[Rfam]
RNA sequence: GUGGGAUAUGGUGAUAUGACACCAAAAACAUUUCCGGGAAUGUUCGUUGGUGGUUUCUGCGCUCUAGCUGGAGUACUGACUAUAGCGCUUCCGGUUCCGGUAAUCGUCAGCAAU
Dot-bracket structure: ((.(...((((..((..((.((..............((.(........(((.........)))..........).))................))))..))..))))...).))
Numbered sequence: 001g002u003g004g005g006a007u008a009u010g011g012u013g014a015u016a017u018g019a020c021a022c023c024a025a026a027a028a029c030a031u032u033u034c035c036g037g038g039a040a041u042g043u044u045c046g047u048u049g050g051u052g053g054u055u056u057c058u059g060c061g062c063u064c065u066a067g068c069u070g071g072a073g074u075a076c077u078g079a080c081u082a083u084a085g086c087g088c089u090u091c092c093g094g095u096u097c098c099g100g101u102a103a104u105c106g107u108c109a110g111c112a113a114u
Stems, first nucleotide, its partner, number of pairs: 001114002004111001008107004014101002018097002021095002037077002040074001049063003
The record is a 114-nucleotide RNA sequence from Cephus cinctus, which matches "Potassium channel RNA editing signal" in Rfam. For this family Rfam cites "Control of human potassium channel inactivation by editing of a small mRNA hairpin" (Bhalla et al., Nat Struct Mol Biol, 2004). From the family's description: This family represents a group of sequences related to the human potassium channel Kv1.1 hairpin element which directs the efficient modification of an adenosine to inosine by an adenosine deaminase acting on RNA (ADAR). Pairs were carried over by alignment from the consensus structure, which is taken from published work.